[Rfam]
Rfam assigns this 91-nucleotide sequence from Glycine max to the family "MIR1513 microRNA precursor family".
RNA sequence: GAUCUGAUAUGAGAGAAAGCCAUGACUUACACACGCAUUGAAAUCUAAGUUAAAUAUGUGUGUAAGUCAUGGCAUUAUCUCAUAUCUAAUC
Numbered sequence: 001g002a003u004c005u006g007a008u009a010u011g012a013g014a015g016a017a018a019g020c021c022a023u024g025a026c027u028u029a030c031a032c033a034c035g036c037a038u039u040g041a042a043a044u045c046u047a048a049g050u051u052a053a054a055u056a057u058g059u060g061u062g063u064a065a066g067u068c069a070u071g072g073c074a075u076u077a078u079c080u081c082a083u084a085u086c087u088a089a090u091c
Base pairs, nucleotide, nucleotide: 001091002090003089006086007085008084009083010082011081012080013079014078016076017075019073020072021071022070023069024068025067026066027065028064029063030062031061032060033059034058035057037055038054039053041051042050